[Rfam]
RNA sequence: UGGAGAAGGGGAGCACGUGCAAAGGGGGAUCGAUGGAGAUCGAGAACACCACCAAAGAUUUGCACGUGCCCUGCUUCUCCAAC
Numbered sequence: 001u002g003g004a005g006a007a008g009g010g011g012a013g014c015a016c017g018u019g020c021a022a023a024g025g026g027g028g029a030u031c032g033a034u035g036g037a038g039a040u041c042g043a044g045a046a047c048a049c050c051a052c053c054a055a056a057g058a059u060u061u062g063c064a065c066g067u068g069c070c071c072u073g074c075u076u077c078u079c080c081a082a083c
Stems, first nucleotide, its partner, number of pairs: 001081008010072002013069011028050001

Rfam assigns this 83-nucleotide sequence from Apium graveolens to the family "MIR164 microRNA precursor family".
The family has 2 seed sequences and 201 matches in Rfam 15.1.
A reference for the family is Rhoades et al. (2002), "Prediction of plant microRNA targets", Cell.
Its family is annotated with miRNA-mediated post-transcriptional gene silencing and RISC complex in the Gene Ontology.